[Rfam]
RNA: U2 spliceosomal RNA
Organism: Papaver somniferum
RNA sequence: AUACCUUUCUCGGCCUUUUGGCUAAGAUCAAGUGUAGUAUCUUUUCUUAUCAGUUUAAUAUCUGAUAUGUGAGCCGUCGGCUCACACGAUAUUAAAUUAAUUUUUUUCAUGGGGAAUUCCCAUCACAGCAGCUUGCUGCUGGGGUUCUCAAGCGUCGCCUCUGCGUUGCACUACUGCAAAGGCCUGGCGCACCCCCA
Number, nucleotide and partner (000 for none) at each position: 001a000002u000003a000004c000005c000006u000007u000008u027009c026010u025011c000012g023013g022014c021015c020016u000017u000018u000019u000020g015021g014022c013023u012024a000025a010026g009027a008028u000029c000030a000031a000032g000033u000034g000035u000036a000037g000038u000039a000040u000041c000042u000043u000044u000045u000046c000047u000048u067049a066050u065051c064052a063053g062054u000055u000056u000057a000058a000059u000060a000061u000062c053063u052064g051065a050066u049067a048068u000069g085070u084071g083072a082073g081074c080075c079076g000077u000078c000079g075080g074081c073082u072083c071084a070085c069086a000087c000088g000089a000090u000091a000092u000093u000094a000095a000096a000097u000098u000099a000100a000101u000102u000103u000104u000105u000106u000107u000108c000109a000110u000111g000112g000113g149114g148115a000116a146117u000118u144119c143120c142121c000122a000123u000124c000125a000126c000127a000128g139129c138130a137131g136132c000133u000134u000135g000136c131137u130138g129139c128140u000141g000142g120143g119144g118145u000146u116147c000148u114149c113150a000151a000152g190153c189154g188155u187156c186157g185158c000159c181160u180161c000162u178163g177164c176165g000166u000167u000168g000169c000170a000171c000172u000173a000174c000175u000176g164177c163178a162179a000180a160181g159182g000183c000184c000185u157186g156187g155188c154189g153190c152191a000192c000193c000194c000195c000196c000197a000